[Rfam]
RNA sequence: AUGAGGGUGACCGAGUGUGGGAAGGAAGCGUGGAGCGAAACUGCGAGCCGAUGAACAAGAACUGCAUAGAAGGCGCUGCCAAGCAGGGCGAGCGGGCCAUUUACCGCGAAGCUCUCGUGAUCAAGGCGAAGUGGCGUAGAUGCAGCGGUUGUGCAGCGAAGGAGUGCGUUC
Numbered sequence: 001a002u003g004a005g006g007g008u009g010a011c012c013g014a015g016u017g018u019g020g021g022a023a024g025g026a027a028g029c030g031u032g033g034a035g036c037g038a039a040a041c042u043g044c045g046a047g048c049c050g051a052u053g054a055a056c057a058a059g060a061a062c063u064g065c066a067u068a069g070a071a072g073g074c075g076c077u078g079c080c081a082a083g084c085a086g087g088g089c090g091a092g093c094g095g096g097c098c099a100u101u102u103a104c105c106g107c108g109a110a111g112c113u114c115u116c117g118u119g120a121u122c123a124a125g126g127c128g129a130a131g132u133g134g135c136g137u138a139g140a141u142g143c144a145g146c147g148g149u150u151g152u153g154c155a156g157c158g159a160a161g162g163a164g165u166g167c168g169u170u171c
Base pairs, nucleotide, nucleotide: 001016002015005012006011028171030169031168032167036162041156042155043154044153045152046150047149048148049147050146062145063144064143065142066141067140073137074136075135077133078132079131083127084126086114087113088112089111092107093106094105095104
RNA: Group II catalytic intron D1-D4-3
Organism: Limnohabitans sp. T6-5